Rfam assigns this 309-nucleotide RNA sequence from Vitis vinifera to the family "Plant signal recognition particle RNA". Lineage of the source: Eukaryota > Magnoliopsida > Vitales > Vitaceae > Vitis. It scores 236 bits against the family's covariance model. Rfam classes the family as a non-coding RNA gene.

RNA sequence: GCCGGGUCCAGUAACGCGGACUUGUGACUCAUGUGGGGGCAUCAAGGUGGUCGAAGGUUGGAAUGACUGAAGAGGUAGGGUGCUGCAGGGGUUUGAUAGCUGGCUUGCCCGUUCCAAGAGGGGAGUUGAGCCCUGUGACCCGAUCGAAGGAUUGGGUGGCAUGGUUCCUAAAGCGAGGAGGGCACCGCGUGAGGCUGGCUUCACAGAGCAGCGUUCACCUCCCGCUCUCUUCGGUGGAAGGAUAACGAGCCAGUACUCCACAGGCCCAACGACGCCUCCUCAGCCGCUCUCAACCCAACAACCACCUUU
Numbered sequence: 001g002c003c004g005g006g007u008c009c010a011g012u013a014a015c016g017c018g019g020a021c022u023u024g025u026g027a028c029u030c031a032u033g034u035g036g037g038g039g040c041a042u043c044a045a046g047g048u049g050g051u052c053g054a055a056g057g058u059u060g061g062a063a064u065g066a067c068u069g070a071a072g073a074g075g076u077a078g079g080g081u082g083c084u085g086c087a088g089g090g091g092u093u094u095g096a097u098a099g100c101u102g103g104c105u106u107g108c109c110c111g112u113u114c115c116a117a118g119a120g121g122g123g124a125g126u127u128g129a130g131c132c133c134u135g136u137g138a139c140c141c142g143a144u145c146g147a148a149g150g151a152u153u154g155g156g157u158g159g160c161a162u163g164g165u166u167c168c169u170a171a172a173g174c175g176a177g178g179a180g181g182g183c184a185c186c187g188c189g190u191g192a193g194g195c196u197g198g199c200u201u202c203a204c205a206g207a208g209c210a211g212c213g214u215u216c217a218c219c220u221c222c223c224g225c226u227c228u229c230u231u232c233g234g235u236g237g238a239a240g241g242a243u244a245a246c247g248a249g250c251c252a253g254u255a256c257u258c259c260a261c262a263g264g265c266c267c268a269a270c271g272a273c274g275c276c277u278c279c280u281c282a283g284c285c286g287c288u289c290u291c292a293a294c295c296c297a298a299c300a301a302c303c304a305c306c307u308u309u
Stems, first nucleotide, its partner, number of pairs: 001040003004023006028037003044308008053299001056296002058293003061289002064286002068282003072278005079267002083263003088259001090258002094255002100253008109241002112239005118232009128167005134161003138157008168173001177222005187214004195206003